RNA sequence: GCAUGGGUUUGGAUUUAUGCCGGGCCCGUCCCCUGGGCCUCUAGCAUAGUAUCCCGUGCCAGAGCAUACUCCAACCCUAAACCAUUGCCUGGCCUCUGUGCCUGUAGACUCCUAGUGUUGAAGCAGGUUGCACAGUG
Numbered sequence: 001g002c003a004u005g006g007g008u009u010u011g012g013a014u015u016u017a018u019g020c021c022g023g024g025c026c027c028g029u030c031c032c033c034u035g036g037g038c039c040u041c042u043a044g045c046a047u048a049g050u051a052u053c054c055c056g057u058g059c060c061a062g063a064g065c066a067u068a069c070u071c072c073a074a075c076c077c078u079a080a081a082c083c084a085u086u087g088c089c090u091g092g093c094c095u096c097u098g099u100g101c102c103u104g105u106a107g108a109c110u111c112c113u114a115g116u117g118u119u120g121a122a123g124c125a126g127g128u129u130g131c132a133c134a135g136u137g
Stems, first nucleotide, its partner, number of pairs: 001059004005054004015049006022040003025036002072130005083120002088115001091110002094107002

This 137-nucleotide sequence from Urocitellus parryii belongs to the Rfam family "Small nucleolar RNA SNORA42/SNORA80 family". NCBI's taxonomy places the organism under Eukaryota, Eumetazoa, Teleostomi, Eutheria, Urocitellus. The family's consensus secondary structure was predicted with RNAalifold. It is annotated as an H/ACA-box small nucleolar RNA. The members of this family belong to the H/ACA class of snoRNAs that guide the sites of modification of uridines to pseudouridines. Human ACA42 (SNORA42) was cloned from HeLa cells by immunoprecipitation with anti-GAR1 antibody. Its is predicted to guide the pseudouridylation of residues U109 and U572 of 18S rRNA. ACA42 shares the same host gene with ACA26, ACA46, ACA50. This family also includes mammalian snoRNA ACA67 (SNORA80) which was identified by computational screening and its expression in mouse experimentally verified by Northern blot and primer extension analysis. ACA67 is proposed to guide the pseudouridylation of the same 18S rRNA residues as ACA42. The match comes from Rfam's covariance-model search (113 bits).